Shown here is a 105-nucleotide RNA from Rhodococcus spelaei, a member of the family "mraW RNA". Pairs were carried over by alignment from the consensus structure, which is taken from published work. The match comes from Rfam's covariance-model search (69 bits). Rfam classes the family as a cis-regulatory element.

[Rfam]
RNA sequence: UUCGGCGAGUGCCGCGAGGCCUCUGCCCGACGCCGGCCCUGACGCACUUCCCCAGCGCCAGGUCCGGCCCAUCGGACAGGGACCUCGAGGCAUUCGCCCCCACUU
Numbered sequence: 001u002u003c004g005g006c007g008a009g010u011g012c013c014g015c016g017a018g019g020c021c022u023c024u025g026c027c028c029g030a031c032g033c034c035g036g037c038c039c040u041g042a043c044g045c046a047c048u049u050c051c052c053c054a055g056c057g058c059c060a061g062g063u064c065c066g067g068c069c070c071a072u073c074g075g076a077c078a079g080g081g082a083c084c085u086c087g088a089g090g091c092a093u094u095c096g097c098c099c100c101c102a103c104u105u
Stems, first nucleotide, its partner, number of pairs: 010092004015087002018084002021081005027075004032068005038062004043057003
Dot-bracket structure: .........((((.((.((.(((((.((((.(((((.((((.(((.........))).)))).)))))...)))).))))).)).)).)))).............